[Rfam]
RNA sequence: AAUGGAACCUGCAGGACUAACCACAUGGACAAAUGGAAAAAUGCCUUUGUCUGCACAUUGCAGCGAUCCUGCGUAAACACGGCGGUCUCUGUCUGGCGUAGGGCAGCUGACUGGGUCCGAUCGUCCCUCAUACAGC
Numbered sequence: 001a002a003u004g005g006a007a008c009c010u011g012c013a014g015g016a017c018u019a020a021c022c023a024c025a026u027g028g029a030c031a032a033a034u035g036g037a038a039a040a041a042u043g044c045c046u047u048u049g050u051c052u053g054c055a056c057a058u059u060g061c062a063g064c065g066a067u068c069c070u071g072c073g074u075a076a077a078c079a080c081g082g083c084g085g086u087c088u089c090u091g092u093c094u095g096g097c098g099u100a101g102g103g104c105a106g107c108u109g110a111c112u113g114g115g116u117c118c119g120a121u122c123g124u125c126c127c128u129c130a131u132a133c134a135g136c
Stems, first nucleotide, its partner, number of pairs: 004069003009063004026053005035046002081129002084126002089123001091121003095117003099113003
RNA: Small Cajal body specific RNA 3
Organism: Crocuta crocuta